The record is a 330-nucleotide RNA sequence from Raphanus sativus, which matches "TeloSII non coding RNA 33" in Rfam. It is annotated as a small RNA. Located downstream of the TeloSII elements. The family's consensus secondary structure was predicted with RNAfold. Its family is annotated with ncRNA polyadenylation in the Gene Ontology.
RNA sequence: UCCUCACUCAUCAGGCAAAUUCUGAAUACAAAAGCUACACUCUCAAUCGUUUAUUUACAUCAAAACAGAUAUCAACAAUCCCUCUUAACAUUUUUACCAAAAAAAAAAGAUAUCAACAAUCCCACACUAAAAUGUUUGAUUCACAACCACACCUAAAAUACAAACAACUAAAAUAUAUAGGGAUUAAUUCAAAAUUUCAAGGUAAAAAUCUGCAAAUGUAUAUUAUUUAAACUAGAGAAGCCUCUUCCUGAAGUUUUUGGUAGUUGAUUUAUAUGUACGAACGAGAAGACCGACACCAAUCCCAAGACCAACACAGACGCCAAGUCCAAU
Numbered sequence: 001u002c003c004u005c006a007c008u009c010a011u012c013a014g015g016c017a018a019a020u021u022c023u024g025a026a027u028a029c030a031a032a033a034g035c036u037a038c039a040c041u042c043u044c045a046a047u048c049g050u051u052u053a054u055u056u057a058c059a060u061c062a063a064a065a066c067a068g069a070u071a072u073c074a075a076c077a078a079u080c081c082c083u084c085u086u087a088a089c090a091u092u093u094u095u096a097c098c099a100a101a102a103a104a105a106a107a108a109g110a111u112a113u114c115a116a117c118a119a120u121c122c123c124a125c126a127c128u129a130a131a132a133u134g135u136u137u138g139a140u141u142c143a144c145a146a147c148c149a150c151a152c153c154u155a156a157a158a159u160a161c162a163a164a165c166a167a168c169u170a171a172a173a174u175a176u177a178u179a180g181g182g183a184u185u186a187a188u189u190c191a192a193a194a195u196u197u198c199a200a201g202g203u204a205a206a207a208a209u210c211u212g213c214a215a216a217u218g219u220a221u222a223u224u225a226u227u228u229a230a231a232c233u234a235g236a237g238a239a240g241c242c243u244c245u246u247c248c249u250g251a252a253g254u255u256u257u258u259g260g261u262a263g264u265u266g267a268u269u270u271a272u273a274u275g276u277a278c279g280a281a282c283g284a285g286a287a288g289a290c291c292g293a294c295a296c297c298a299a300u301c302c303c304a305a306g307a308c309c310a311a312c313a314c315a316g317a318c319g320c321c322a323a324g325u326c327c328a329a330u
Stems, first nucleotide, its partner, number of pairs: 011251004023057006030050001090174005180247001181245003188238002197236002200233002211220003253321001255319001256317004260312002263308003266301004275294002278292002282288001